[Rfam]
RNA sequence: CACUUCUCGUGUUCACGGCGGACCUUGAUUUAUCAGCCAUACAAUUAAGGCACGCGGUGAAUGCCAAGAGAG
Numbered sequence: 001c002a003c004u005u006c007u008c009g010u011g012u013u014c015a016c017g018g019c020g021g022a023c024c025u026u027g028a029u030u031u032a033u034c035a036g037c038c039a040u041a042c043a044a045u046u047a048a049g050g051c052a053c054g055c056g057g058u059g060a061a062u063g064c065c066a067a068g069a070g071a072g
Stems, first nucleotide, its partner, number of pairs: 003070003009064008018055003023050008

The family of this 72-nucleotide RNA from Gouania willdenowi is "mir-124 microRNA precursor family". Gene Ontology terms of the family: miRNA-mediated post-transcriptional gene silencing and RISC complex. A search with the family's covariance model found it, with a score of 76 bits. Rfam 15.1 lists 2,215 matches to the family in 905 species. Pairs were carried over by alignment from the consensus structure, which was predicted with PFOLD.